RNA sequence: UGACUGAGUAAUCUCUGCAGGCAACUGUGAUGGUGCUUUAUUUUCUCACAAUCACCUGGAGAGAUUCUGCAGUUU
Numbered sequence: 001u002g003a004c005u006g007a008g009u010a011a012u013c014u015c016u017g018c019a020g021g022c023a024a025c026u027g028u029g030a031u032g033g034u035g036c037u038u039u040a041u042u043u044u045c046u047c048a049c050a051a052u053c054a055c056c057u058g059g060a061g062a063g064a065u066u067c068u069g070c071a072g073u074u075u
Stems, first nucleotide, its partner, number of pairs: 003073004010066007020057002024052001026050005
The record is a 75-nucleotide sequence from Oreochromis niloticus, which matches "mir-216 microRNA precursor family" in Rfam. The family's consensus secondary structure was predicted with WAR. It scores 62 bits against the family's covariance model. The organism belongs to Oreochromis, within Eukaryota. On this family, see Shao et al., Gene 2008: "Identification of novel chicken microRNAs and analysis of their genomic organization".